[Rfam]
RNA sequence: UGUUGGUUCUCCCGCAACACUAACUUGUGAACUCGGUCAGGUCCGGAAGGAAGCAGCCGCAGCAGGCGAGGUGUGUGCCGGGAUGUAGCUGGCAGGGC
Numbered sequence: 001u002g003u004u005g006g007u008u009c010u011c012c013c014g015c016a017a018c019a020c021u022a023a024c025u026u027g028u029g030a031a032c033u034c035g036g037u038c039a040g041g042u043c044c045g046g047a048a049g050g051a052a053g054c055a056g057c058c059g060c061a062g063c064a065g066g067c068g069a070g071g072u073g074u075g076u077g078c079c080g081g082g083a084u085g086u087a088g089c090u091g092g093c094a095g096g097g098c
Base pairs, nucleotide, nucleotide: 004091005090006089007088008087010083011082012081013080014079015075017074018073019072020071021070024066025065026064027063028062034059035058036057037056042051043050044049
The record is a 98-nucleotide sequence from Yersinia pestis, which matches "Bacterial small signal recognition particle RNA" in Rfam. Clan: SRP clan. Rfam classes the family as a non-coding RNA gene. A reference for the family is Rosenblad et al. (2009), "Kinship in the SRP RNA family", RNA Biol. The base pairs follow the family's consensus structure, which is taken from published work.